Description:
Rfam assigns this 117-nucleotide RNA sequence from Sphingobium fontiphilum to the family "ALIL pseudoknot". Taxonomically the source falls in Sphingobium (Bacteria, Pseudomonadati, Pseudomonadota, Sphingobiaceae). The family has 26 seed sequences and 2,146 matches in Rfam 15.1. On this family, see Mazauric et al., J Biol Chem 2008: "Apical loop-internal loop RNA pseudoknots: a new type of stimulator of -1 translational frameshifting in bacteria".

RNA sequence: CGCAUAUAUUGCGAUGGCGGGGCUCGACCGCCCCGGCAGAUGAUGAUCGCGUUUAUCGACGCCCAUCGCGAGAAUUUGGGGAUCGAGCCGAUCUGCCGCGAGCUGGCGAUCGCCCCA
Numbered sequence: 001c002g003c004a005u006a007u008a009u010u011g012c013g014a015u016g017g018c019g020g021g022g023c024u025c026g027a028c029c030g031c032c033c034c035g036g037c038a039g040a041u042g043a044u045g046a047u048c049g050c051g052u053u054u055a056u057c058g059a060c061g062c063c064c065a066u067c068g069c070g071a072g073a074a075u076u077u078g079g080g081g082a083u084c085g086a087g088c089c090g091a092u093c094u095g096c097c098g099c100g101a102g103c104u105g106g107c108g109a110u111c112g113c114c115c116c117a
Base pairs, nucleotide, nucleotide: 016032017031018030019029020028079116080115081114089112090111092109093108096105098103